[Rfam]
RNA sequence: UUUUCCGCGAGGAACGGUCUGAAGGAAGCCGCUAGCAAAACUGCGAGCUGAUGAACAAGAACAUCAUACUAGGCGUAGGUCAGAGGCGAGUUGGCACAAGACGACGAAGCCAAGUGAUUUAAUGACCACCGUAAAUGAUGCAGUUGCGCAGUGAAAGUUCAUGUC
Numbered sequence: 001u002u003u004u005c006c007g008c009g010a011g012g013a014a015c016g017g018u019c020u021g022a023a024g025g026a027a028g029c030c031g032c033u034a035g036c037a038a039a040a041c042u043g044c045g046a047g048c049u050g051a052u053g054a055a056c057a058a059g060a061a062c063a064u065c066a067u068a069c070u071a072g073g074c075g076u077a078g079g080u081c082a083g084a085g086g087c088g089a090g091u092u093g094g095c096a097c098a099a100g101a102c103g104a105c106g107a108a109g110c111c112a113a114g115u116g117a118u119u120u121a122a123u124g125a126c127c128a129c130c131g132u133a134a135a136u137g138a139u140g141c142a143g144u145u146g147c148g149c150a151g152u153g154a155a156a157g158u159u160c161a162u163g164u165c
Base pairs, nucleotide, nucleotide: 001016003014004013005012006011028165030163031162035158036157040152041151042150043149044148045147046145047144048143049142050141062140063139064138065137066136067135073132074131075130078127079126080125081124082123085111086110087109090105091104092103093102